This 68-nucleotide RNA sequence from Anaerosolibacter carboniphilus belongs to the Rfam family "Fluoride riboswitch aptamer (crcB RNA motif)". Lineage of the source: Bacteria > Bacillati > Bacillota > Thermotaleaceae > Anaerosolibacter.

[Rfam]
RNA sequence: AGAAUGAUAGGUGAUGGAGCUCGCCUUUAACCAUUGCAUGAAGUGCAAUUAAUGGCUCCUACUUCGGC
Dot-bracket structure: .........[[[[..((((((]]]].......((((((.....))))))....)))))).........